[Rfam]
RNA sequence: UCGUGGGCGACCGCGAAUCUGAAGGAAGCCCGAGGCAAACUGCUGGCCUGACGAACAGGAAGCGGAUAGAGGCGGCACAGCGGGGUGAGGCGGCCCAAAUCGUCAAAGCCCAGUACUUGCACGGGACGCUGUGACGUAAAUCCGACAGGCAUAAGCAGGAAGGUCACGCGA
Numbered sequence: 001u002c003g004u005g006g007g008c009g010a011c012c013g014c015g016a017a018u019c020u021g022a023a024g025g026a027a028g029c030c031c032g033a034g035g036c037a038a039a040c041u042g043c044u045g046g047c048c049u050g051a052c053g054a055a056c057a058g059g060a061a062g063c064g065g066a067u068a069g070a071g072g073c074g075g076c077a078c079a080g081c082g083g084g085g086u087g088a089g090g091c092g093g094c095c096c097a098a099a100u101c102g103u104c105a106a107a108g109c110c111c112a113g114u115a116c117u118u119g120c121a122c123g124g125g126a127c128g129c130u131g132u133g134a135c136g137u138a139a140a141u142c143c144g145a146c147a148g149g150c151a152u153a154a155g156c157a158g159g160a161a162g163g164u165c166a167c168g169c170g171a
Stems, first nucleotide, its partner, number of pairs: 001016006029170001031168002035164002040158005046150005063144005072137003076133007083111004089104004
RNA: Group II catalytic intron D1-D4-3